This 135-nucleotide RNA from Echeneis naucrates belongs to the Rfam family "Small nucleolar RNA SNORA79". Pairs were carried over by alignment from the consensus structure, which was predicted with RNAalifold. Rfam classes the family as an H/ACA-box small nucleolar RNA. Rfam describes the family as follows. ACA65 (SNORA79) is a member of the H/ACA class of snoRNAs that guide the sites of modification of uridines to pseudouridines. This snoRNA was identified by computational screening and its expression in mouse experimentally verified by Northern blot and primer extension analysis.
RNA sequence: UGACGUUGGUUCCUCCUCCUGGCUGCAGUGGACCAGGAGGAUUUUACAAUGUCAGAGAGAAACUUGGGUCUUUUUUCACCCAGGAAGCUUAAGGCUGUACACAACAGCUUCCUGGUUUUGCGGGACCCAACAAAC
Numbered sequence: 001u002g003a004c005g006u007u008g009g010u011u012c013c014u015c016c017u018c019c020u021g022g023c024u025g026c027a028g029u030g031g032a033c034c035a036g037g038a039g040g041a042u043u044u045u046a047c048a049a050u051g052u053c054a055g056a057g058a059g060a061a062a063c064u065u066g067g068g069u070c071u072u073u074u075u076u077c078a079c080c081c082a083g084g085a086a087g088c089u090u091a092a093g094g095c096u097g098u099a100c101a102c103a104a105c106a107g108c109u110u111c112c113u114g115g116u117u118u119u120g121c122g123g124g125a126c127c128c129a130a131c132a133a134a135c
Stems, first nucleotide, its partner, number of pairs: 001054008014041005020035003067127006080115010093102001